[Rfam]
RNA sequence: GUGGGCUAUGGGGAUAUGCACCCAAUCACCAUUGGGGGCAAAAUUGUGGGCUCUCUUUGUGCCAUUGCUGGUGUGUUGACUAUUGCUUUGCCUGUGCCUGUGAUUGUCUCCAAC
Numbered sequence: 001g002u003g004g005g006c007u008a009u010g011g012g013g014a015u016a017u018g019c020a021c022c023c024a025a026u027c028a029c030c031a032u033u034g035g036g037g038g039c040a041a042a043a044u045u046g047u048g049g050g051c052u053c054u055c056u057u058u059g060u061g062c063c064a065u066u067g068c069u070g071g072u073g074u075g076u077u078g079a080c081u082a083u084u085g086c087u088u089u090g091c092c093u094g095u096g097c098c099u100g101u102g103a104u105u106g107u108c109u110c111c112a113a114c
Stems, first nucleotide, its partner, number of pairs: 001114002004111002008107004014101003018097004037077004049063003

Notes:
This 114-nucleotide RNA from Microcaecilia unicolor belongs to the Rfam family "Potassium channel RNA editing signal". For this family Rfam cites "Control of human potassium channel inactivation by editing of a small mRNA hairpin" (Bhalla et al., Nat Struct Mol Biol, 2004). The family's RNA type in Rfam is cis-regulatory element.